[Rfam]
RNA: Bacterial RNase P class A
RNA sequence: CCAGAUGGCCGGACGGCCGCCCUUCGUUUCGGCGAGGGGAGGAAAGUCCGGGCUCCACGGAAGCACGGUGCCGGAUAACGUCCGGCGGGGGCGACCCCAGGGAAAGUGCAACAGAGAGCAGACCGCCCGCCGGCCCGCCGCAAGGCAGGACGCCGCAAGGCACCGGCAGGCAAGGGUGAAAGGGUGCGGUAAGAGCGCACCGCGGCCCCGGCAACGGGGACGGCACGGUAAACCCCACCGGGAGCAAGACCAAAUAGGGGCGGCUGUUCCUCGCGUUCGCGCGGGGACGAAACGCGCUUCCGCGUCGCCGCCCGGGUCGGUCGCGCGAGGCGCCCGGUAACGGGCGUCCCAGAUGAAUGGUCGUCACCAUGGGAAACCAUGGGACAGAACCCGGCUUACAGGCCAUCUGGCGCA
Numbered sequence: 001c002c003a004g005a006u007g008g009c010c011g012g013a014c015g016g017c018c019g020c021c022c023u024u025c026g027u028u029u030c031g032g033c034g035a036g037g038g039g040a041g042g043a044a045a046g047u048c049c050g051g052g053c054u055c056c057a058c059g060g061a062a063g064c065a066c067g068g069u070g071c072c073g074g075a076u077a078a079c080g081u082c083c084g085g086c087g088g089g090g091g092c093g094a095c096c097c098c099a100g101g102g103a104a105a106g107u108g109c110a111a112c113a114g115a116g117a118g119c120a121g122a123c124c125g126c127c128c129g130c131c132g133g134c135c136c137g138c139c140g141c142a143a144g145g146c147a148g149g150a151c152g153c154c155g156c157a158a159g160g161c162a163c164c165g166g167c168a169g170g171c172a173a174g175g176g177u178g179a180a181a182g183g184g185u186g187c188g189g190u191a192a193g194a195g196c197g198c199a200c201c202g203c204g205g206c207c208c209c210g211g212c213a214a215c216g217g218g219g220a221c222g223g224c225a226c227g228g229u230a231a232a233c234c235c236c237a238c239c240g241g242g243a244g245c246a247a248g249a250c251c252a253a254a255u256a257g258g259g260g261c262g263g264c265u266g267u268u269c270c271u272c273g274c275g276u277u278c279g280c281g282c283g284g285g286g287a288c289g290a291a292a293c294g295c296g297c298u299u300c301c302g303c304g305u306c307g308c309c310g311c312c313c314g315g316g317u318c319g320g321u322c323g324c325g326c327g328a329g330g331c332g333c334c335c336g337g338u339a340a341c342g343g344g345c346g347u348c349c350c351a352g353a354u355g356a357a358u359g360g361u362c363g364u365c366a367c368c369a370u371g372g373g374a375a376a377c378c379a380u381g382g383g384a385c386a387g388a389a390c391c392c393g394g395c396u397u398a399c400a401g402g403c404c405a406u407c408u409g410g411c412g413c414a
Stems, first nucleotide, its partner, number of pairs: 001410010011399001012365007020039008044397003048394005053244004062299002066240005071085005086100001087098004101235002106233002108229002123175002125171003129167005183201006202224001203222002206219005248322004258313006292305004329348008